The record is a 56-nucleotide RNA sequence from Homo sapiens, which matches "mir-3155 microRNA precursor family" in Rfam. NCBI's taxonomy places the organism under Eukaryota, Opisthokonta, Tetrapoda, Catarrhini, Homo. The family's consensus secondary structure was predicted with RNAalifold.
RNA sequence: CCACUGCAGAGCCUGGGGAGCCGGACAGCUCCCUUCCCAGGCUCUGCAGUGGGAAC
Number, nucleotide and partner (000 for none) at each position: 001c052002c051003a050004c049005u048006g047007c046008a045009g044010a043011g042012c041013c040014u039015g038016g037017g036018g000019a034020g033021c000022c000023g000024g000025a000026c000027a000028g000029c000030u000031c000032c000033c020034u019035u000036c017037c016038c015039a014040g013041g012042c011043u010044c009045u008046g007047c006048a005049g004050u003051g002052g001053g000054a000055a000056c000